[Rfam]
RNA sequence: CUUUUUAUGUGGAUGGUGUUCAGCACCAAGGACAUGCAUUUUGUGUGCGUUGGUGGUGUUCAGCACCAAGGACAUGCACGUUUAUCC
Number, nucleotide and partner (000 for none) at each position: 001c076002u000003u074004u000005u000006u072007a000008u000009g000010u000011g000012g000013a000014u068015g067016g066017u065018g064019u063020u062021c000022a060023g059024c058025a057026c056027c055028a054029a000030g048031g000032a046033c045034a044035u043036g042037c000038a000039u000040u000041u000042u036043g035044u034045g033046u032047g000048c030049g000050u000051u000052g000053g000054u028055g027056g026057u025058g024059u023060u022061c000062a020063g019064c018065a017066c016067c015068a014069a000070g000071g000072a006073c000074a003075u000076g001077c000078a000079c000080g000081u000082u000083u000084a000085u000086c000087c000
Rfam assigns this 87-nucleotide RNA from Branchiostoma lanceolatum to the family "mir-2060 microRNA precursor family". A search with the family's covariance model found it, with a score of 65 bits. NCBI's taxonomy places the organism under Eukaryota, Cephalochordata, Leptocardii, Branchiostomatidae, Branchiostoma.